Background
The record is a 49-nucleotide RNA sequence from Vibrio astriarenae, which matches "L31-Gammaproteobacteria ribosomal protein leader" in Rfam. The family is grouped with related families in Rfam's "Ribosomal Protein L31 Leader clan". For this family Rfam cites "Discovery of 20 novel ribosomal leader candidates in bacteria and archaea" (Eckert and Weinberg, BMC Microbiol, 2020). Pairs were carried over by alignment from the consensus structure, which is taken from published work. By type it is a cis-regulatory leader. A search with the family's covariance model found it, with a score of 56 bits.
[Rfam]
RNA sequence: CGUGUGGUGUCCAGCGCAGAGUUGGAUAGCGACACGGCCCAAUUGAGGU
Numbered sequence: 001c002g003u004g005u006g007g008u009g010u011c012c013a014g015c016g017c018a019g020a021g022u023u024g025g026a027u028a029g030c031g032a033c034a035c036g037g038c039c040c041a042a043u044u045g046a047g048g049u
Stems, first nucleotide, its partner, number of pairs: 001036005007030002011025005